A member of the RNA family "c-di-GMP-I-GGC riboswitch aptamer" from Acetobacterium woodii, 76 nucleotides long. The base pairs follow the family's consensus structure, which is taken from published work. Rfam 15.1 lists 1,298 matches to the family in 717 species.
RNA sequence: AACGACAAUGGCAAACCUAUCGAAAGGUAGGGACGCAAAGCUAAAGGGCCUGUAAAAUGGUAGCCAGUUAUCGAAG
Number, nucleotide and partner (000 for none) at each position: 001a000002a000003c073004g072005a000006c000007a000008a000009u000010g000011g036012c035013a000014a000015a000016c031017c030018u029019a028020u027021c026022g000023a000024a000025a000026g021027g020028u019029a018030g017031g016032g000033a000034c063035g012036c011037a000038a000039a069040g068041c067042u066043a000044a000045a000046g065047g064048g061049c060050c059051u000052g000053u000054a000055a000056a000057a000058u000059g050060g049061u048062a000063g034064c047065c046066a042067g041068u040069u039070a000071u000072c004073g003074a000075a000076g000